Record summary
The family of this 121-nucleotide RNA from Limnobaculum parvum is "Ribosomal S15 leader". Lineage of the source: Bacteria > Pseudomonadati > Pseudomonadota > Gammaproteobacteria > Limnobaculum. The literature on the family includes a 1996 paper in Biochimie by Benard et al., "Pseudoknot and translational control in the expression of the S15 ribosomal protein". Rfam describes the family as follows. The E. coli Ribosomal S15 gene 5' UTR can form two alternative structures. One that is a series of three hairpins, The other includes a pseudoknot. It scores 104 bits against the family's covariance model.

[Rfam]
Nucleotides: 121
Stems, first nucleotide, its partner, number of pairs: 008025005052074006
Number, partner (000 for none) and nucleotide at each position: 001000u002000u003000g004000g005000g006000u007000g008025g009024c010023u011022g012021a013000a014000u015000u016000a017000g018000a019000g020000a021012u022011c023010g024009g025008c026000g027000c028000c029000u030000g031000u032000u033000u034000u035000a036000u037000c038000u039000a040000u041000a042000u043000a044000u045000c046000u047000a048000a049000g050000a051000g052074u053073u054072g055071g056070a057069g058000u059000u060000c061000u062000a063000u064000a065000a066000u067000g068000u069057c070056u071055c072054u073053a074052a075000g076000u077000g078000u079000u080000g081000a082000a083000g084000c085000g086000a087000a088000a089000g090000c091000u092000a093000a094000a095000a096000u097000u098000g099000u100000u101000g102000c103000u104000g105000a106000u107000u108000a109000u110000g111000g112000u113000c114000g115000u116000g117000g118000c119000g120000c121000a